[Rfam]
This 97-nucleotide RNA sequence from Spiroplasma helicoides belongs to the Rfam family "Purine riboswitch aptamer".
The organism belongs to Spiroplasma, within Bacteria.
Riboswitches are metabolite binding domains within certain messenger RNAs that serve as precision sensors for their corresponding targets.
RNA sequence: AAAAGUGAAAGUAAGCAAACUUGUAUAAGUCAACAUAUUGGGUUGAUGUAUCUACUAAGGCACCUAUGUCUUAUCUAUGAGUUUAUGAAUGGCUUAU
Numbered sequence: 001a002a003a004a005g006u007g008a009a010a011g012u013a014a015g016c017a018a019a020c021u022u023g024u025a026u027a028a029g030u031c032a033a034c035a036u037a038u039u040g041g042g043u044u045g046a047u048g049u050a051u052c053u054a055c056u057a058a059g060g061c062a063c064c065u066a067u068g069u070c071u072u073a074u075c076u077a078u079g080a081g082u083u084u085a086u087g088a089a090u091g092g093c094u095u096a097u
Base pairs, nucleotide, nucleotide: 018083019082020081021080022079023078024077025076029047030046031045032044033043034042056073057072058071059070060069061068062067